[Rfam]
RNA sequence: AGGACCCAAUUGUAAUGGAUCCUGUGUCAGGACCCAAUUCGCUUGGGUCCUUCGCCAGGACCCAAUGAUAAUGGGUCCUGCAUUAGGAUCCAAUGCUAAUGGGUCCU
Numbered sequence: 001a002g003g004a005c006c007c008a009a010u011u012g013u014a015a016u017g018g019a020u021c022c023u024g025u026g027u028c029a030g031g032a033c034c035c036a037a038u039u040c041g042c043u044u045g046g047g048u049c050c051u052u053c054g055c056c057a058g059g060a061c062c063c064a065a066u067g068a069u070a071a072u073g074g075g076u077c078c079u080g081c082a083u084u085a086g087g088a089u090c091c092a093a094u095g096c097u098a099a100u101g102g103g104u105c106c107u
Base pairs, nucleotide, nucleotide: 001107002106003105004104005103006102007101008100013095014094016092017091018090019089020088021087022086023085024084029079030078031077032076033075034074035073036072043065044064045063046062047061048060049059050058
Annotation: The family of this 107-nucleotide RNA from Populus trichocarpa is "MIR6450 microRNA precursor family". The family's consensus secondary structure was predicted with RNAalifold. Taxonomically the source falls in Populus (Eukaryota, Pentapetalae, rosids, Saliceae). Its family is annotated with miRNA-mediated post-transcriptional gene silencing and RISC complex in the Gene Ontology.